[Rfam]
RNA: tRNA
RNA sequence: AGAAAUAUGUCUGACAAAAGAGUUACUUUGAUAGAGUAAAUAAUAGAGGUUUAAAUCCUCUUAUUUCUA
Numbered sequence: 001a002g003a004a005a006u007a008u009g010u011c012u013g014a015c016a017a018a019a020g021a022g023u024u025a026c027u028u029u030g031a032u033a034g035a036g037u038a039a040a041u042a043a044u045a046g047a048g049g050u051u052u053a054a055a056u057c058c059u060c061u062u063a064u065u066u067c068u069a
Stems, first nucleotide, its partner, number of pairs: 001068007010021003023039005045061005